[Rfam]
RNA: miR-430 microRNA precursor family
Organism: Scophthalmus maximus
RNA sequence: CUGAUCACUUCAAACGGAGCCACUAAUGAUUUCUACAUUCAUAAGUGCUUCUCUUUGGGGUUGUCUUG
Number, nucleotide and partner (000 for none) at each position: 001c000002u000003g000004a064005u063006c000007a061008c060009u059010u058011c057012a000013a000014a055015c000016g052017g051018a050019g049020c000021c047022a046023c045024u044025a000026a042027u041028g040029a000030u000031u000032u000033c000034u000035a000036c000037a000038u000039u000040c028041a027042u026043a000044a024045g023046u022047g021048c000049u019050u018051c017052u016053c000054u000055u014056u000057g011058g010059g009060g008061u007062u000063g005064u004065c000066u000067u000068g000